[Rfam]
RNA sequence: CGCCUGAAGCGGGGGUGCCCGGGCGUGACGCGGGCUGAGAAUUACCCUUCGAACCUGAUCCGGCUCGCACCGGCGUAGGGAGCUUCGUGGUGCGGGCC
Numbered sequence: 001c002g003c004c005u006g007a008a009g010c011g012g013g014g015g016u017g018c019c020c021g022g023g024c025g026u027g028a029c030g031c032g033g034g035c036u037g038a039g040a041a042u043u044a045c046c047c048u049u050c051g052a053a054c055c056u057g058a059u060c061c062g063g064c065u066c067g068c069a070c071c072g073g074c075g076u077a078g079g080g081a082g083c084u085u086c087g088u089g090g091u092g093c094g095g096g097c098c
Stems, first nucleotide, its partner, number of pairs: 006086005011048004017035005054079004060073004
Dot-bracket structure: .....(((((((((..(((((.........))))).........)))).....((((..((((......))))..))))..)))))............
RNA: TPP riboswitch aptamer (THI element)
Organism: Arenimonas metalli